[Rfam]
RNA sequence: AAGCAACCUCGUUAGGUGAGGCUUCUAUACGGAGAUACGCUGCUACCCACACUCGUCGAAAGACGCCGAAUGGGUGAACAGAAAUGAUCGGCUUAAGGUCAUUUUUAACGCAGCUGGACGUGUCCUAUGCCGUAUAGUGCCAAAGCUCAACGAUGAGGGGAUGGCU
Numbered sequence: 001a002a003g004c005a006a007c008c009u010c011g012u013u014a015g016g017u018g019a020g021g022c023u024u025c026u027a028u029a030c031g032g033a034g035a036u037a038c039g040c041u042g043c044u045a046c047c048c049a050c051a052c053u054c055g056u057c058g059a060a061a062g063a064c065g066c067c068g069a070a071u072g073g074g075u076g077a078a079c080a081g082a083a084a085u086g087a088u089c090g091g092c093u094u095a096a097g098g099u100c101a102u103u104u105u106u107a108a109c110g111c112a113g114c115u116g117g118a119c120g121u122g123u124c125c126u127a128u129g130c131c132g133u134a135u136a137g138u139g140c141c142a143a144a145g146c147u148c149a150a151c152g153a154u155g156a157g158g159g160g161a162u163g164g165c166u
Stems, first nucleotide, its partner, number of pairs: 005162001007160004011151002013096001015147003020141003025137008039114005045075005054065004081105004087099003116125003
RNA: M-box riboswitch aptamer (ykoK leader)